[Rfam]
RNA sequence: AUUGUAUAAAGGCAAACUUAUUGAAAGAUAAGGACGCAAAGCCAAGGGCCUAAAUUAUUUUAUAAUAUGGCAGCCGGUUGCACAA
Numbered sequence: 001a002u003u004g005u006a007u008a009a010a011g012g013c014a015a016a017c018u019u020a021u022u023g024a025a026a027g028a029u030a031a032g033g034a035c036g037c038a039a040a041g042c043c044a045a046g047g048g049c050c051u052a053a054a055u056u057a058u059u060u061u062a063u064a065a066u067a068u069g070g071c072a073g074c075c076g077g078u079u080g081c082a083c084a085a
Stems, first nucleotide, its partner, number of pairs: 012037002017032006040079004046075002048071003055065004